[Rfam]
Nucleotides: 578
Base pairs, nucleotide, nucleotide: 001476002475003473004472005471007470008469009468010467011466012465013464015460016459019423020422021421022420023419024317026315027314028313029312030311031310032309033308034306035305040055041054042053043052064301065300066299067298068297069296076124077123078122080120081119082118084116088103089102090101091100092099093098106115107114108113126290127289129288130287131286132285135284136283137279138278139277140275142273143272147186148185149184150183151182152181153162154161155160166177167176168175192267193266194265195264197235198234199233200232201231202230203229207224208223211222212221213220238258241255242253243252244251245250321375322374323373324372325371326370327369334363335362338357339356343352344351345350382413387408388407389406390405391404392403393402429452430451431450432449433448434447435446479577481574484570485569489564490563491562492561494559495558496557499554500553501552502551503550507546508545509544510543515539516538517537518536519535520534523532524531
Number, partner (000 for none) and nucleotide at each position: 001476u002475g003473g004472c005471g006000g007470g008469g009468g010467u011466c012465c013464g014000c015460a016459c017000a018000a019423g020422c021421g022420g023419a024317g025000g026315a027314a028313c029312a030311u031310g032309u033308g034306g035305u036000u037000u038000a039000a040055u041054u042053c043052g044000a045000u046000g047000a048000u049000a050000c051000g052043c053042g054041a055040g056000g057000a058000a059000c060000c061000u062000u063000a064301c065300c066299c067298g068297g069296g070000a071000u072000u073000g074000a075000a076124a077123u078122g079000u080120a081119g082118a083000u084116g085000c086000a087000u088103g089102a090101g091100g092099c093098u094000g095000a096000g097000a098093g099092g100091u101090c102089u103088c104000u105000u106115c107114c108113c109000u110000u111000c112000g113108g114107g115106g116084c117000u118082u119081c120080u121000a122078u123077g124076u125000a126290g127289g128000u129288g130287c131286u132285g133000c134000a135284u136283g137279g138278u139277u140275g141000u142273c143272g144000u145000c146000a147186g148185c149184u150183c151182g152181u153162g154161c155160c156000g157000u158000g159000a160155g161154g162153u163000g164000u165000c166177g167176g168175c169000u170000u171000a172000a173000g174000u175168g176167c177166c178000a179000u180000a181152a182151c183150g184149a185148g186147c187000g188000c189000a190000a191000c192267c193266c194265g195264c196000g197235u198234c199233g200232a201231u202230a203229g204000u205000u206000a207224c208223u209000a210000a211222c212221g213220a214000g215000u216000c217000a218000a219000g220213u221212c222211g223208a224207g225000g226000a227000c228000u229203c230202u231201a232200u233199c234198g235197a236000g237000a238258c239000a240000g241255c242253c243252g244251u245250c246000g247000u248000a249000a250245g251244a252243c253242g254000u255241g256000a257000g258238g259000a260000a261000g262000g263000a264195g265194c266193g267192g268000a269000u270000g271000a272143c273142g274000u275140c276000a277139a278138a279137u280000c281000a282000g283136c284135a285132c286131g287130g288129c289127c290126c291000u292000u293000a294000c295000a296069u297068c298067c299066g300065g301064g302000g303000c304000g305035a306034c307000a308033c309032a310031c311030g312029u313028g314027u315026u316000a317024c318000a319000a320000u321375g322374g323373u324372a325371g326370g327369g328000a329000c330000a331000g332000c333000g334363a335362g336000c337000a338357g339356c340000c341000a342000u343352c344351u345350g346000g347000u348000g349000a350345c351344a352343g353000a354000g355000a356339g357338c358000u359000a360000a361000u362335c363334u364000a365000u366000a367000a368000a369327c370326c371325c372324u373323a374322u375321c376000c377000c378000a379000g380000u381000u382413c383000g384000g385000a386000u387408c388407g389406g390405a391404g392403u393402c394000u395000g396000c397000a398000a399000c400000u401000c402393g403392a404391c405390u406389c407388u408387g409000u410000g411000a412000a413382g414000c415000u416000g417000g418000a419023u420022u421021c422020g423019c424000u425000a426000g427000u428000a429452a430451u431450c432449g433448c434447g435446c436000a437000u438000c439000a440000g441000c442000c443000a444000u445000g446435g447434c448433g449432c450431g451430g452429u453000g454000a455000a456000u457000a458000c459016g460015u461000u462000c463000c464013c465012g466011g467010a468009c469008c470007u471005u472004g473003c474000a475002c476001a477000c478000a479577c480000c481574g482000c483000c484570c485569g486000u487000c488000a489564a490563g491562c492561c493000a494559u495558g496557g497000g498000a499554g500553u501552c502551g503550g504000g505000g506000g507546u508545a509544c510543c511000u512000g513000a514000a515539g516538a517537g518536c519535g520534u521000g522000a523532c524531c525000g526000u527000c528000a529000c530000a531524g532523g533000a534520g535519c536518g537517c538516u539515u540000g541000a542000g543510g544509g545508u546507a547000a548000a549000a550503c551502u552501g553500g554499u555000g556000a557496c558495u559494g560000g561492g562491g563490c564489u565000a566000a567000g568000u569485c570484g571000u572000a573000a574481c575000a576000a577479g578000g
Bacterial small subunit ribosomal RNA: a 578-nucleotide part of an RNA from Porphyromonas asaccharolytica. A reference for the family is Yusupov et al. (2001), "Crystal structure of the ribosome at 5.5 A resolution", Science. The family is grouped with related families in Rfam's "SSU clan". The sequence is in the family's curated seed alignment.